A member of the RNA family "mir-551 microRNA precursor family" from Rattus norvegicus, 74 nucleotides long.
It is one of the family's seed sequences.

RNA sequence: UGGCCCAUGAAAUCAAGCUUGGGUGAGACCUGGUACAGAACAGGAAGGCGACCCAUACUUGGUUUCAGUGGCUG
Numbered sequence: 001u002g003g004c005c006c007a008u009g010a011a012a013u014c015a016a017g018c019u020u021g022g023g024u025g026a027g028a029c030c031u032g033g034u035a036c037a038g039a040a041c042a043g044g045a046a047g048g049c050g051a052c053c054c055a056u057a058c059u060u061g062g063u064u065u066c067a068g069u070g071g072c073u074g
Stems, first nucleotide, its partner, number of pairs: 002073004009066006016059002021054004029048003
Taxonomically the source falls in Rattus (Eukaryota, Dipnotetrapodomorpha, Boreoeutheria, Murinae). For this family Rfam cites "Conservation of small RNA pathways in platypus" (Murchison et al., Genome Res, 2008). The family's consensus secondary structure was predicted with RNAalifold. Rfam links the family to the GO terms RISC complex and miRNA-mediated post-transcriptional gene silencing. The family has 29 seed sequences and 1,097 matches in Rfam 15.1.